This 255-nucleotide RNA sequence from Alteribacillus iranensis belongs to the Rfam family "BsrG". By type it is a small RNA. About the family: bsrE, bsrG and bsrH pair through intermolecular interactions with antisense sRNAs. They form type I toxin/antitoxin system that includes an mRNA encoding for a short, toxic peptide (bsrE, bsrG and bsrH) and an antitoxin that is comprised of an antisense RNA. bsrG encodes a 39-amino-acid toxin, and the 180 nucleotide antisense sRNA called SR4 acts as the antitoxin (they overlap by 123 nucleotides).
RNA sequence: AGACAAUAGAUUGGUAACUCAAGGGUGGUCAGGCAUCAUCUCCGAGGAAAGGGGGUGGUGCACUAUGACGGUAUUUCAAGCGCUUAUUUUGAUGAUUAGCUUUGCUAGUCUUGUCGUGGCGAUACUGUCAUUUUACGACAAAAAAUAAAUCACCCUUGAGUUAGGUUAGGCCCAGGGUGAUUUAUUCGCACCUAGCCGAUCCCCCUUGACGGGAACCAACUAUUGUGUGAGACCGUAGGUGUUACCGCACCUAUG
Numbered sequence: 001a002g003a004c005a006a007u008a009g010a011u012u013g014g015u016a017a018c019u020c021a022a023g024g025g026u027g028g029u030c031a032g033g034c035a036u037c038a039u040c041u042c043c044g045a046g047g048a049a050a051g052g053g054g055g056u057g058g059u060g061c062a063c064u065a066u067g068a069c070g071g072u073a074u075u076u077c078a079a080g081c082g083c084u085u086a087u088u089u090u091g092a093u094g095a096u097u098a099g100c101u102u103u104g105c106u107a108g109u110c111u112u113g114u115c116g117u118g119g120c121g122a123u124a125c126u127g128u129c130a131u132u133u134u135a136c137g138a139c140a141a142a143a144a145a146u147a148a149a150u151c152a153c154c155c156u157u158g159a160g161u162u163a164g165g166u167u168a169g170g171c172c173c174a175g176g177g178u179g180a181u182u183u184a185u186u187c188g189c190a191c192c193u194a195g196c197c198g199a200u201c202c203c204c205c206u207u208g209a210c211g212g213g214a215a216c217c218a219a220c221u222a223u224u225g226u227g228u229g230a231g232a233c234c235g236u237a238g239g240u241g242u243u244a245c246c247g248c249a250c251c252u253a254u255g
Stems, first nucleotide, its partner, number of pairs: 001228001003226003007222003011199005018160008027150001029148001036058003040055004067129007081094002103121004200214004234255009